[Rfam]
RNA: Burkholderia RNA 7 (anti-hemB)
Organism: Comamonadaceae bacterium G21597-S1
RNA sequence: UCCCCGCUUUUCCUCCCUGAGCGGGGCCUUGAUGUGUGACAGCAAAAAAGGCUUGCACCCCCAGCCCUCGGGCUGGGGUUUUUUUU
Numbered sequence: 001u002c003c004c005c006g007c008u009u010u011u012c013c014u015c016c017c018u019g020a021g022c023g024g025g026g027c028c029u030u031g032a033u034g035u036g037u038g039a040c041a042g043c044a045a046a047a048a049a050g051g052c053u054u055g056c057a058c059c060c061c062c063a064g065c066c067c068u069c070g071g072g073c074u075g076g077g078g079u080u081u082u083u084u085u086u
Stems, first nucleotide, its partner, number of pairs: 003025006028051003059078008